A member of the RNA family "Mammalian CPEB3 ribozyme" from Alligator mississippiensis, 77 nucleotides long.
RNA sequence: AGUCACAAGCUUGAGGUCAUAACAGAAGCACUCAUUGUGCAGCUCUGUCAGAUUCUAAUGAAUCUGUGAAUUCUGCU
Numbered sequence: 001a002g003u004c005a006c007a008a009g010c011u012u013g014a015g016g017u018c019a020u021a022a023c024a025g026a027a028g029c030a031c032u033c034a035u036u037g038u039g040c041a042g043c044u045c046u047g048u049c050a051g052a053u054u055c056u057a058a059u060g061a062a063u064c065u066g067u068g069a070a071u072u073c074u075g076c077u
Stems, first nucleotide, its partner, number of pairs: 013045002016043002021077001023075005028040003049066007

About the family: The mammalian CPEB3 ribozyme is a self cleaving RNA located in the second intron of the CPEB3 gene which belongs to a family of genes regulating messenger RNA polyadenylation. This ribozyme is highly conserved and found only in mammals. The CPEB3 ribozyme is structurally and biochemically related to the human hepatitis delta virus (HDV) ribozyme and the HDV ribozyme is proposed to have arisen from the human transcriptome. There is currently only one other known self cleaving ribozyme in mammals, the CoTC motif. The source organism's lineage runs through Eukaryota, Deuterostomia, Sauropsida, Archosauria and Alligator.